Rfam assigns this 46-nucleotide RNA from Chiloscyllium punctatum to the family "Histone 3' UTR stem-loop". For this family Rfam cites "The sequence of the stem and flanking sequences at the 3' end of histone mRNA are critical determinants for the binding of the stem-loop binding protein" (Williams and Marzluff, Nucleic Acids Res, 1995). The match comes from Rfam's covariance-model search (36 bits). The family has 50 seed sequences and 44,596 matches in Rfam 15.1. Rfam's curators write: The mRNAs of metazoan histone genes lack a poly-A tail. 3' end processing occurs at a site between a highly conserved stem-loop (modelled by this family) and a purine rich region around 20 nts downstream (the histone downstream element, or HDE). The stem-loop is bound by a 31 kDa stem-loop binding protein (SLBP - also termed the histone hairpin binding protein, or HBP). Together with U7 snRNA binding of the HDE, SLBP binding nucleate s the formation of the processing complex. The histone 3' UTR stem-loop is also involved in nucleocytoplasmic transport of the mRNA, and in stability regulation and translation efficiency in the cytoplasm.
RNA sequence: AAAAAGGCUCUUUUGAGAGCCACUCACAUGUUCAACAUGGAAGAGU
Number, nucleotide and partner (000 for none) at each position: 001a000002a000003a000004a000005a000006g021007g020008c019009u018010c017011u016012u000013u000014u000015g000016a011017g010018a009019g008020c007021c006022a000023c000024u000025c000026a000027c000028a000029u000030g000031u000032u000033c000034a000035a000036c000037a000038u000039g000040g000041a000042a000043g000044a000045g000046u000